[Rfam]
RNA sequence: AUAACAUUCGGACCGACGGUCUCCCGAACAAUUUCACCGGCUUGGUGGAUGAUCAUUCCUUGUCGU
Numbered sequence: 001a002u003a004a005c006a007u008u009c010g011g012a013c014c015g016a017c018g019g020u021c022u023c024c025c026g027a028a029c030a031a032u033u034u035c036a037c038c039g040g041c042u043u044g045g046u047g048g049a050u051g052a053u054c055a056u057u058c059c060u061u062g063u064c065g066u
Base pairs, nucleotide, nucleotide: 004063005062006061010058011057012056015053017051020049021048022047024045025044026043027042029040
Description
The record is a 66-nucleotide RNA sequence from Bombyx mori, which matches "mir-2774 microRNA precursor family" in Rfam. A search with the family's covariance model found it, with a score of 52 bits. Rfam links the family to the GO terms RISC complex and miRNA-mediated post-transcriptional gene silencing.